The record is a 78-nucleotide sequence from Marihabitans asiaticum, which matches "ZMP/ZTP riboswitch aptamer (pfl RNA motif)" in Rfam. The family's consensus secondary structure is taken from published work. Rfam 15.1 lists 3,295 matches to the family in 2,545 species. Rfam links the family to the GO terms regulation of purine nucleotide biosynthetic process and one-carbon metabolic process.

[Rfam]
RNA sequence: GGGACCAGACACGACUGGCGCAGGUGGGGCACCACCGGGGAGUGAGUCCGUAGCGCAUCGCCCGCCUGGGUGCGCUCU
Dot-bracket structure: ..(((....(((..(([[[[...((((....))))..))..))).)))......(((((...]]]]..))))).....